[Rfam]
RNA: DUF805b RNA
RNA sequence: AAGGAAAAAGCCGAAAAUCCUGCAAAGAGUAGGCA
Numbered sequence: 001a002a003g004g005a006a007a008a009a010g011c012c013g014a015a016a017a018u019c020c021u022g023c024a025a026a027g028a029g030u031a032g033g034c035a
Base pairs, nucleotide, nucleotide: 002021003020004019005018010034011033012032
Dot-bracket structure: .((((....[[[.....))))..........]]].